[Rfam]
SAH (S-adenosyl-L-homocysteine) riboswitch aptamer: a 69-nucleotide RNA from Rugamonas rivuli. Pairs were carried over by alignment from the consensus structure, which is taken from published work.
RNA sequence: CCUUCCGAGGAGCGUUGCGACGAAUCACGAAUUCGCCAGGCUCGGAGUCCCAAACCGCGCUCACGUUAC
Numbered sequence: 001c002c003u004u005c006c007g008a009g010g011a012g013c014g015u016u017g018c019g020a021c022g023a024a025u026c027a028c029g030a031a032u033u034c035g036c037c038a039g040g041c042u043c044g045g046a047g048u049c050c051c052a053a054a055c056c057g058c059g060c061u062c063a064c065g066u067u068a069c
Stems, first nucleotide, its partner, number of pairs: 003047006021035005
Dot-bracket structure: ..((((((............(((((.....)))))......))))))......................
A search with the family's covariance model found it, with a score of 56 bits.